[Rfam]
RNA sequence: UAAGGCUUUGCUCCGCGCAUUAACACGAUGAAGUGUUGCUCGGAGC
Numbered sequence: 001u002a003a004g005g006c007u008u009u010g011c012u013c014c015g016c017g018c019a020u021u022a023a024c025a026c027g028a029u030g031a032a033g034u035g036u037u038g039c040u041c042g043g044a045g046c
Stems, first nucleotide, its partner, number of pairs: 011045005017039003

uup RNA: a 46-nucleotide RNA from Pseudoalteromonas galatheae. It is annotated as a cis-regulatory element.